[Rfam]
RNA: Plastid-ycf2 5UTR RNA
Organism: Gossypium stocksii
RNA sequence: GUGCAUUCAGUAGGAAUUGAACUUACAAUUCGUCAAUUAUAAAUUGGAUGAUUUAAUCAUUCAACCAUGGAUGC
Numbered sequence: 001g002u003g004c005a006u007u008c009a010g011u012a013g014g015a016a017u018u019g020a021a022c023u024u025a026c027a028a029u030u031c032g033u034c035a036a037u038u039a040u041a042a043a044u045u046g047g048a049u050g051a052u053u054u055a056a057u058c059a060u061u062c063a064a065c066c067a068u069g070g071a072u073g074c
Stems, first nucleotide, its partner, number of pairs: 003074006010026005039068002044064007